[Rfam]
RNA sequence: UGGGAUGUUGGGCAUGCCCAACACGACUGGUCAAUAUUAAGGGUAUAUUGACGGGUCGUGAUGGGCACUUUCAAUGUUCCC
Numbered sequence: 001u002g003g004g005a006u007g008u009u010g011g012g013c014a015u016g017c018c019c020a021a022c023a024c025g026a027c028u029g030g031u032c033a034a035u036a037u038u039a040a041g042g043g044u045a046u047a048u049u050g051a052c053g054g055g056u057c058g059u060g061a062u063g064g065g066c067a068c069u070u071u072c073a074a075u076g077u078u079c080c081c
Base pairs, nucleotide, nucleotide: 004078005077006076007075008074009073010072011071012070015067016066017065018064019063020062022060023059024058025057026056027055028054030052031051032050033049034048035047036046037045

The family of this 81-nucleotide sequence from Ceratodon purpureus is "MIR1033 microRNA precursor family". Pairs were carried over by alignment from the consensus structure, which was predicted with RNAalifold. Rfam 15.1 lists 10 matches to the family in 2 species. A search with the family's covariance model found it, with a score of 71 bits.